Bacillaceae-1 RNA: a 65-nucleotide sequence from Bacillus sp. J14TS2. NCBI's taxonomy places the organism under Bacteria, Bacillota, Bacilli, Caryophanales, Bacillus.
RNA sequence: GCUAAAGGAUUUUCGACUAAGUACCGGCACGUCCUGUAUCGAACGUCGAAGUCACAUGCUGAGGA
Numbered sequence: 001g002c003u004a005a006a007g008g009a010u011u012u013u014c015g016a017c018u019a020a021g022u023a024c025c026g027g028c029a030c031g032u033c034c035u036g037u038a039u040c041g042a043a044c045g046u047c048g049a050a051g052u053c054a055c056a057u058g059c060u061g062a063g064g065a
Stems, first nucleotide, its partner, number of pairs: 011051007026040002029037002055061001